[Rfam]
Description
The family of this 71-nucleotide sequence from Monilinia laxa is "tRNA". The match comes from Rfam's covariance-model search (56 bits). The base pairs follow the family's consensus structure, which is taken from published work. The organism belongs to Monilinia, within Eukaryota. For this family Rfam cites "The tertiary structure of tRNA and the development of the genetic code" (Hou, Trends Biochem Sci, 1993). About the family: Transfer RNA (tRNA) molecules are approximately 80 nucleotides in length. Their secondary structure includes four short double-helical elements and three loops (D, anti-codon, and T loops). Further hydrogen bonds mediate the characteristic L-shaped molecular structure. tRNAs have two regions of fundamental functional importance: the anti-codon, which is responsible for specific mRNA codon recognition, and the 3' end, to which the tRNAs corresponding amino acid is attached (by aminoacyl-tRNA synthetases). tRNAs cope with the degeneracy of the genetic code in two manners: having more than one tRNA (with a specific anti-codon) for a particular amino acid; and 'wobble' base-pairing, i.e. permitting non-standard base-pairing at the 3rd anti-codon position.
RNA sequence: AAGAGCAUAGUUUAAGGGUAAAAUUUGAAGCUUCAAACUUCACCUUCUCAGUUCAAAUCUGAGUGCUCUUG
Numbered sequence: 001a002a003g004a005g006c007a008u009a010g011u012u013u014a015a016g017g018g019u020a021a022a023a024u025u026u027g028a029a030g031c032u033u034c035a036a037a038c039u040u041c042a043c044c045u046u047c048u049c050a051g052u053u054c055a056a057a058u059c060u061g062a063g064u065g066c067u068c069u070u071g
Stems, first nucleotide, its partner, number of pairs: 001070007010024004026042005047063005